[Rfam]
RNA: Small nucleolar RNA SNORA65
RNA sequence: AAAGCCACUGCACCUGACCAGUAUUGUUGGCUGGUGCAACACAGUGGUGAGCUGACAAUAAGCCCAGCUUUUAGGAAACAGGGCUGUCCUACAUGUGGAUGGCUCUGUGCCGAAAGCAUGGAAACAGCC
Numbered sequence: 001a002a003a004g005c006c007a008c009u010g011c012a013c014c015u016g017a018c019c020a021g022u023a024u025u026g027u028u029g030g031c032u033g034g035u036g037c038a039a040c041a042c043a044g045u046g047g048u049g050a051g052c053u054g055a056c057a058a059u060a061a062g063c064c065c066a067g068c069u070u071u072u073a074g075g076a077a078a079c080a081g082g083g084c085u086g087u088c089c090u091a092c093a094u095g096u097g098g099a100u101g102g103c104u105c106u107g108u109g110c111c112g113a114a115a116g117c118a119u120g121g122a123a124a125c126a127g128c129c
Stems, first nucleotide, its partner, number of pairs: 005047006017035005022029002064121003067117004074111002079107006087099003